[Rfam]
RNA sequence: CGGGUGAACUAUGGUUAAGGAACUCGGCAAAAUGCCCCCGUAACUUCGGGAGAAGGGGGGCCAUCACUGGUGAUCGGAUUUACUCCGUGAGCUGGGGGUGGCCGCAGAGACCAGCGAGAAGCGACUGUUUACUAAAAACACAGGUCCGUGCGAAGCCGUAAGGCGAUGUAUACGGACUGACGCCUGCCCGGUGCUGGAACGUUAAGGGGACCGGUUAGUCCUGUUUCGACAGGGCGAAGCUGAGAACUUAAGCGCCAGUAAACGGCGGUGGUAACUAUAACCAUCCUAAGGUAGCGAAAUUCCUUGUCGGGUAAGUUCCGACCUGCACGAAUGGCGUAACGACUUCUCGACUGUCUCAACCAUAGGCCCG
Numbered sequence: 001c002g003g004g005u006g007a008a009c010u011a012u013g014g015u016u017a018a019g020g021a022a023c024u025c026g027g028c029a030a031a032a033u034g035c036c037c038c039c040g041u042a043a044c045u046u047c048g049g050g051a052g053a054a055g056g057g058g059g060g061c062c063a064u065c066a067c068u069g070g071u072g073a074u075c076g077g078a079u080u081u082a083c084u085c086c087g088u089g090a091g092c093u094g095g096g097g098g099u100g101g102c103c104g105c106a107g108a109g110a111c112c113a114g115c116g117a118g119a120a121g122c123g124a125c126u127g128u129u130u131a132c133u134a135a136a137a138a139c140a141c142a143g144g145u146c147c148g149u150g151c152g153a154a155g156c157c158g159u160a161a162g163g164c165g166a167u168g169u170a171u172a173c174g175g176a177c178u179g180a181c182g183c184c185u186g187c188c189c190g191g192u193g194c195u196g197g198a199a200c201g202u203u204a205a206g207g208g209g210a211c212c213g214g215u216u217a218g219u220c221c222u223g224u225u226u227c228g229a230c231a232g233g234g235c236g237a238a239g240c241u242g243a244g245a246a247c248u249u250a251a252g253c254g255c256c257a258g259u260a261a262a263c264g265g266c267g268g269u270g271g272u273a274a275c276u277a278u279a280a281c282c283a284u285c286c287u288a289a290g291g292u293a294g295c296g297a298a299a300u301u302c303c304u305u306g307u308c309g310g311g312u313a314a315g316u317u318c319c320g321a322c323c324u325g326c327a328c329g330a331a332u333g334g335c336g337u338a339a340c341g342a343c344u345u346c347u348c349g350a351c352u353g354u355c356u357c358a359a360c361c362a363u364a365g366g367c368c369c370g
Stems, first nucleotide, its partner, number of pairs: 001370004009365008018356003035059005044049001060102006075087004103107001115349007122341002126140003143178008151168001155164003181336004186266003191263002193259005200254003206248002212242004218235007267285006286290001296323001306322006
Record summary: Bacterial large subunit ribosomal RNA: a 370-nucleotide part of an RNA from Streptomyces seoulensis. The match comes from Rfam's covariance-model search (2765 bits). The literature on the family includes a 2001 paper in Science by Yusupov et al., "Crystal structure of the ribosome at 5.5 A resolution". The source organism's lineage runs through Bacteria, Actinomycetota, Actinomycetes, Kitasatosporales and Streptomyces.